[Rfam]
RNA sequence: AAUAGGUUUAUGCCACAUCAGCAUUUUUAUUUUGAAUUUCAACAUUUUUAUCUUGAAAAAAAUCAAAUCCAAAUUAAAAUGCUGAAAUUCAAGAUAAGAAUGCUGAUGUGGCAUAAACCUAUU
Numbered sequence: 001a002a003u004a005g006g007u008u009u010a011u012g013c014c015a016c017a018u019c020a021g022c023a024u025u026u027u028u029a030u031u032u033u034g035a036a037u038u039u040c041a042a043c044a045u046u047u048u049u050a051u052c053u054u055g056a057a058a059a060a061a062a063u064c065a066a067a068u069c070c071a072a073a074u075u076a077a078a079a080u081g082c083u084g085a086a087a088u089u090c091a092a093g094a095u096a097a098g099a100a101u102g103c104u105g106a107u108g109u110g111g112c113a114u115a116a117a118c119c120u121a122u123u
Stems, first nucleotide, its partner, number of pairs: 001123027029095011041083001045079004

This 123-nucleotide RNA sequence from Gossypium australe belongs to the Rfam family "MIR7504 microRNA precursor family". Pairs were carried over by alignment from the consensus structure, which was predicted with RNAalifold. A search with the family's covariance model found it, with a score of 117 bits. NCBI's taxonomy places the organism under Eukaryota, Streptophytina, Magnoliopsida, Malvoideae, Gossypium. Rfam links the family to the GO terms miRNA-mediated post-transcriptional gene silencing and RISC complex.